Rfam assigns this 76-nucleotide sequence from Acholeplasma palmae to the family "c-di-GMP-I riboswitch aptamer".
Pairs were carried over by alignment from the consensus structure, which is taken from published work.
The literature on the family includes a 2007 paper in Nucleic Acids Res by Weinberg et al., "Identification of 22 candidate structured RNAs in bacteria using the CMfinder comparative genomics pipeline".
RNA sequence: UACCUACAUUGGCAAAGUUAUCGAAAGAUAAUGACGCAAAGCUAUAGGGCCUUUAAUAUGGUAGCCAGCUGCCUUG
Number, nucleotide and partner (000 for none) at each position: 001u000002a000003c000004c000005u000006a000007c000008a000009u000010u000011g000012g037013c036014a000015a000016a000017g032018u031019u030020a029021u028022c027023g000024a000025a000026a000027g022028a021029u020030a019031a018032u017033g000034a000035c000036g013037c012038a000039a000040a070041g069042c068043u067044a000045u000046a000047g066048g065049g062050c061051c060052u000053u000054u000055a000056a000057u000058a000059u000060g051061g050062u049063a000064g000065c048066c047067a043068g042069c041070u040071g000072c000073c000074u000075u000076g000